[Rfam]
RNA: PyrD leader
Organism: Chania multitudinisentens
RNA sequence: AUUCCAAUUGAUGGGGUAAUACCGGAUAAUAUGCCCCCGGCUUGCAACGAUGCCUAAAUUACUUGGAGUAUGAAGGGUAUAACCGGGAAAUCAGGAGAGUACAUGUAC
Numbered sequence: 001a002u003u004c005c006a007a008u009u010g011a012u013g014g015g016g017u018a019a020u021a022c023c024g025g026a027u028a029a030u031a032u033g034c035c036c037c038c039g040g041c042u043u044g045c046a047a048c049g050a051u052g053c054c055u056a057a058a059u060u061a062c063u064u065g066g067a068g069u070a071u072g073a074a075g076g077g078u079a080u081a082a083c084c085g086g087g088a089a090a091u092c093a094g095g096a097g098a099g100u101a102c103a104u105g106u107a108c
Stems, first nucleotide, its partner, number of pairs: 036087005